[Rfam]
RNA sequence: GAUGGUUUGGCCCAUCCCAUCGGUAUUCAGGUGCAGGCGGAAACCAACUUAUGCGUCAUUGGUAAAGAGCUAUAGUCGUGAAUGAUAAGGAAAAGGCAAACACAAUGAUUUGUCAGGU
Numbered sequence: 001g002a003u004g005g006u007u008u009g010g011c012c013c014a015u016c017c018c019a020u021c022g023g024u025a026u027u028c029a030g031g032u033g034c035a036g037g038c039g040g041a042a043a044c045c046a047a048c049u050u051a052u053g054c055g056u057c058a059u060u061g062g063u064a065a066a067g068a069g070c071u072a073u074a075g076u077c078g079u080g081a082a083u084g085a086u087a088a089g090g091a092a093a094a095g096g097c098a099a100a101c102a103c104a105a106u107g108a109u110u111u112g113u114c115a116g117g118u
Base pairs, nucleotide, nucleotide: 001016002015003014004013005012017040018039020037021036023034024033025032026031045117048089049088050087051086052085053079054078057075060072061071062070063069095114096113097112098111099110100109
Rfam assigns this 118-nucleotide RNA from Saccharobesus litoralis to the family "Group II catalytic intron D1-D4-2". For this family Rfam cites "The ins and outs of group II introns" (Bonen and Vogel, Trends Genet, 2001). Group II introns are found in rRNA, tRNA and mRNA of organelles in fungi, plants and protists, and also in mRNA in bacteria. Rfam links the family to the GO term Group II intron splicing.